[Rfam]
RNA sequence: CCCCCCGAAAUGCGUCCUAGCGCAGCCUUCCUGGAGGUUGCCUACGGGGUAGAGUAACUGAUUGGGGGUUCGGAGCGAAAGCUCCGGGCUUCCAGUCAAACUCCGAACUCGUAGGCGCCGAAGAAGGGGAGAGUGGGCCACUCGGCGUAAGGUUGGGUGGCGAAAGGGAAACAGCCCAGACUUGGGUUAAGGCCCCAAAAUGCCGGCUAAGUGCCAGUUGAAGGGCGUCUCUAGCCUUAGACAGCGGGAAGGUGGGCCCAGCAGCAGCCAUCCUCUAAGGAGUGCGUAACAGCUCACCCGCCGAGGCUAGAGGCCCCGAAGAUUGGUCGGGGCUUAAGCCGGCUGCCGAGACCCAAGCGUGGAGGCUCAUUGAGUCUCCAUGGGUAGGGGGGCGCUGUGGUGGGGUAGAAGGUGGGUCGUGAGAUCCACUGGACCCGCCACAGGUGCAGAU
Numbered sequence: 001c002c003c004c005c006c007g008a009a010a011u012g013c014g015u016c017c018u019a020g021c022g023c024a025g026c027c028u029u030c031c032u033g034g035a036g037g038u039u040g041c042c043u044a045c046g047g048g049g050u051a052g053a054g055u056a057a058c059u060g061a062u063u064g065g066g067g068g069u070u071c072g073g074a075g076c077g078a079a080a081g082c083u084c085c086g087g088g089c090u091u092c093c094a095g096u097c098a099a100a101c102u103c104c105g106a107a108c109u110c111g112u113a114g115g116c117g118c119c120g121a122a123g124a125a126g127g128g129g130a131g132a133g134u135g136g137g138c139c140a141c142u143c144g145g146c147g148u149a150a151g152g153u154u155g156g157g158u159g160g161c162g163a164a165a166g167g168g169a170a171a172c173a174g175c176c177c178a179g180a181c182u183u184g185g186g187u188u189a190a191g192g193c194c195c196c197a198a199a200a201u202g203c204c205g206g207c208u209a210a211g212u213g214c215c216a217g218u219u220g221a222a223g224g225g226c227g228u229c230u231c232u233a234g235c236c237u238u239a240g241a242c243a244g245c246g247g248g249a250a251g252g253u254g255g256g257c258c259c260a261g262c263a264g265c266a267g268c269c270a271u272c273c274u275c276u277a278a279g280g281a282g283u284g285c286g287u288a289a290c291a292g293c294u295c296a297c298c299c300g301c302c303g304a305g306g307c308u309a310g311a312g313g314c315c316c317c318g319a320a321g322a323u324u325g326g327u328c329g330g331g332g333c334u335u336a337a338g339c340c341g342g343c344u345g346c347c348g349a350g351a352c353c354c355a356a357g358c359g360u361g362g363a364g365g366c367u368c369a370u371u372g373a374g375u376c377u378c379c380a381u382g383g384g385u386a387g388g389g390g391g392g393c394g395c396u397g398u399g400g401u402g403g404g405g406u407a408g409a410a411g412g413u414g415g416g417u418c419g420u421g422a423g424a425u426c427c428a429c430u431g432g433a434c435c436c437g438c439c440a441c442a443g444g445u446g447c448a449g450a451u
Stems, first nucleotide, its partner, number of pairs: 001392006011024005026133001027131006036119003040116008052104001053102002060097010071086006137161009166177003181357007191347003200344001202343006223317003227314010244301005250274003255269003275279001280295001284293002358382009393446001395443010411430008
Rfam assigns this 451-nucleotide part of an RNA from Saccharolobus islandicus to the family "Archaeal large subunit ribosomal RNA". The organism belongs to Saccharolobus islandicus, within Archaea. Its family is annotated with structural constituent of ribosome and ribosome in the Gene Ontology. It is one of the family's seed sequences. The family is grouped with related families in Rfam's "LSU clan".